[Rfam]
This 110-nucleotide sequence from Rhynchospora breviuscula belongs to the Rfam family "MIR397 microRNA precursor family". Taxonomically the source falls in Rhynchospora (Eukaryota, Euphyllophyta, commelinids, Cyperaceae). The match comes from Rfam's covariance-model search (75 bits). The family's consensus secondary structure was predicted with WAR.

RNA sequence: UGAAAAUGCAUCAUUGAGUGCAGCGUUGAUGAUCUCCUUCUUUGUUCUAGUAGGAGAAAAAAGAUAGAGAAAAUGGGGCAUCCCCAGCGCUGCAUUCAAUCAUGCUUUUU
Numbered sequence: 001u002g003a004a005a006a007u008g009c010a011u012c013a014u015u016g017a018g019u020g021c022a023g024c025g026u027u028g029a030u031g032a033u034c035u036c037c038u039u040c041u042u043u044g045u046u047c048u049a050g051u052a053g054g055a056g057a058a059a060a061a062a063g064a065u066a067g068a069g070a071a072a073a074u075g076g077g078g079c080a081u082c083c084c085c086a087g088c089g090c091u092g093c094a095u096u097c098a099a100u101c102a103u104g105c106u107u108u109u110u
Stems, first nucleotide, its partner, number of pairs: 006107001008105004013100016031082002